[Rfam]
RNA sequence: CAUGCCCCAGCUCGUGUUGCAGAUGUGGCUGUAGUGCCAUGUUUGUGUCAUUAGGUGGCAGAGAGGAAAAGGCGAUGUCUUCGCUAGUGCUCUGAGACCUGUGAGCACUGGGGAAUGAUGAACAACCUGACAAU
Numbered sequence: 001c002a003u004g005c006c007c008c009a010g011c012u013c014g015u016g017u018u019g020c021a022g023a024u025g026u027g028g029c030u031g032u033a034g035u036g037c038c039a040u041g042u043u044u045g046u047g048u049c050a051u052u053a054g055g056u057g058g059c060a061g062a063g064a065g066g067a068a069a070a071g072g073c074g075a076u077g078u079c080u081u082c083g084c085u086a087g088u089g090c091u092c093u094g095a096g097a098c099c100u101g102u103g104a105g106c107a108c109u110g111g112g113g114a115a116u117g118a119u120g121a122a123c124a125a126c127c128u129g130a131c132a133a134u
Stems, first nucleotide, its partner, number of pairs: 003060004007055002010052001014048002019046004024041006070128003076122001081118003085114001087109001088107005
Small nucleolar RNA SNORA17: a 134-nucleotide sequence from Grus americana. The base pairs follow the family's consensus structure, which was predicted with RNAalifold. From the family's description: snoRNA ACA 17 belongs to the H/ACA family of snoRNAs and is predicted to guide pseudouridylation of the 28S rRNA at positions U4659 and U4598. It shares the same host gene together with ACA43. NB This family has a high threshold value to exclude a large number of closely related sequences that do not appear to have conserved H and ACA boxes, and may be pseudogenes. A search with the family's covariance model found it, with a score of 60 bits. A reference for the family is Ofengand and Bakin (1997), "Mapping to nucleotide resolution of pseudouridine residues in large subunit ribosomal RNAs from representative eukaryotes, prokaryotes, archaebacteria, mitochondria and chloroplasts", J Mol Biol. Its Rfam clan is "SNORA17 clan".